[Rfam]
RNA sequence: GUUGCAAGUUCAAGGACAUAGCAAAAGUGUUCACAGCACAGCCUUGCUAAAUUCUAAUGAAUCUAUACAUUCUGCU
Numbered sequence: 001g002u003u004g005c006a007a008g009u010u011c012a013a014g015g016a017c018a019u020a021g022c023a024a025a026a027g028u029g030u031u032c033a034c035a036g037c038a039c040a041g042c043c044u045u046g047c048u049a050a051a052u053u054c055u056a057a058u059g060a061a062u063c064u065a066u067a068c069a070u071u072c073u074g075c076u
Stems, first nucleotide, its partner, number of pairs: 014043002020076004025071002027039003048065002051062004
This 76-nucleotide RNA from Alligator sinensis belongs to the Rfam family "Mammalian CPEB3 ribozyme". Pairs were carried over by alignment from the consensus structure, which is taken from published work.